[Rfam]
RNA sequence: ACUUCUGUUUUCUAGGGUUCCGCGAUGAGGCAUCAUCGGCUGGUCCAAGGGGAAACGCACCGGCCUUGCCCGCCGGUGACACGGAGGGACAAAAGCCCGGGAGGA
Numbered sequence: 001a002c003u004u005c006u007g008u009u010u011u012c013u014a015g016g017g018u019u020c021c022g023c024g025a026u027g028a029g030g031c032a033u034c035a036u037c038g039g040c041u042g043g044u045c046c047a048a049g050g051g052g053a054a055a056c057g058c059a060c061c062g063g064c065c066u067u068g069c070c071c072g073c074c075g076g077u078g079a080c081a082c083g084g085a086g087g088g089a090c091a092a093a094a095g096c097c098c099g100g101g102a103g104g105a
Base pairs, nucleotide, nucleotide: 007056008055009054010053011052012051015046016045020043021042022040023038024037025036026035027034028033058078059077060076061075062074063073064072080100082103086098087097088096
RNA: Guanidine-I riboswitch aptamer